Source information:
Rfam assigns this 67-nucleotide RNA sequence from Biomphalaria glabrata to the family "mir-29 microRNA precursor family". From the family's description: This family represents the microRNA (miRNA) precursors mir-29. The match comes from Rfam's covariance-model search (60 bits). The family has 168 seed sequences and 3,328 matches in Rfam 15.1. For this family Rfam cites "microRNAs: tiny regulators with great potential" (Ambros, Cell, 2001).
RNA sequence: GGAAACCUGGUCUCUUCUGGUGCUUAGAUUUUAAAAAGGGUCUAGCACCAUUUGAAAUCAGUUUUCU
Numbered sequence: 001g002g003a004a005a006c007c008u009g010g011u012c013u014c015u016u017c018u019g020g021u022g023c024u025u026a027g028a029u030u031u032u033a034a035a036a037a038g039g040g041u042c043u044a045g046c047a048c049c050a051u052u053u054g055a056a057a058u059c060a061g062u063u064u065u066c067u
Base pairs, nucleotide, nucleotide: 001067002066003065004064005062007061008060009059010058011057013055014054018050019049020048021047022046025044026043027042028041